[Rfam]
RNA sequence: CCUGAUCAGAACCAAUUGACUUUUAGAUCAUCCUCGGGAAGGUGCGCCCCUUCACCUCACCCGACCGAGGGC
Numbered sequence: 001c002c003u004g005a006u007c008a009g010a011a012c013c014a015a016u017u018g019a020c021u022u023u024u025a026g027a028u029c030a031u032c033c034u035c036g037g038g039a040a041g042g043u044g045c046g047c048c049c050c051u052u053c054a055c056c057u058c059a060c061c062c063g064a065c066c067g068a069g070g071g072c
Stems, first nucleotide, its partner, number of pairs: 003030005008023003038053005

Shown here is a 72-nucleotide sequence from a Propionibacteriales bacterium, a member of the family "Actinobacteria sRNA Ms_AS-8". Pairs were carried over by alignment from the consensus structure. For this family Rfam cites "Identification of small RNAs in Mycobacterium smegmatis using heterologous Hfq" (Li et al., RNA, 2013). Taxonomically the source falls in Propionibacteriales (Bacteria, Bacillati, Actinomycetota, Actinomycetes).